Shown here is a 63-nucleotide RNA sequence, a member of the family "Glutamine riboswitch aptamer (glnA leader)".
RNA sequence: AUCGUUCAUCUCACUUAAUGGAGACGGAAGUAGGUAACGGGAGAAUUACUAAAGGAACGCAAC
Numbered sequence: 001a002u003c004g005u006u007c008a009u010c011u012c013a014c015u016u017a018a019u020g021g022a023g024a025c026g027g028a029a030g031u032a033g034g035u036a037a038c039g040g041g042a043g044a045a046u047u048a049c050u051a052a053a054g055g056a057a058c059g060c061a062a063c
Base pairs, nucleotide, nucleotide: 003059004058005057006056007055009024010023011022012021027060033050034049035048036047037046
Its family is annotated with glutamine binding in the Gene Ontology. On this family, see Ames and Breaker, RNA Biol 2011: "Bacterial aptamers that selectively bind glutamine".